Source information
The record is a 172-nucleotide RNA sequence from Natranaerovirga hydrolytica, which matches "Group II catalytic intron D1-D4-3" in Rfam. NCBI's taxonomy places the organism under Bacteria, Bacillati, Clostridia, Natranaerovirgaceae, Natranaerovirga. A search with the family's covariance model found it, with a score of 140 bits.
[Rfam]
Nucleotides: 172
Stems, first nucleotide, its partner, number of pairs: 001016006028172001030170002037164001041159006047150005063145005072137003076133007083111004089104004
Number, partner (000 for none) and nucleotide at each position: 001016u002015c003014c004013a005012u006011u007000g008000u009000g010000a011006g012005g013004u014003g015002g016001a017000a018000u019000c020000u021000g022000a023000a024000g025000a026000a027000a028172g029000u030170u031169g032000g033000a034000u035000g036000g037164c038000a039000a040000a041159u042158c043157u044156c045155u046154g047150g048149u049148c050147u051146g052000a053000c054000g055000u056000a057000c058000a059000g060000a061000a062000a063145u064144c065143a066142c067141a068000u069000u070000a071000g072137g073136c074135u075000a076133c077132a078131g079130u080129u081128a082127a083111g084110g085109a086108u087000a088000a089104g090103a091102c092101u093000g094000c095000c096000a097000a098000a099000c100000a101092a102091g103090u104089c105000a106000a107000a108086g109085u110084c111083c112000a113000a114000u115000a116000a117000c118000u119000a120000c121000u122000c123000g124000g125000a126000a127082u128081u129080a130079a131078c132077u133076g134000u135074g136073g137072u138000a139000g140000a141067u142066g143065u144064g145063g146051c147050a148049g149048a150047u151000a152000g153000g154046u155045g156044g157043a158042g159041a160000g161000a162000a163000a164037g165000a166000u167000u168000g169031u170030g171000u172028u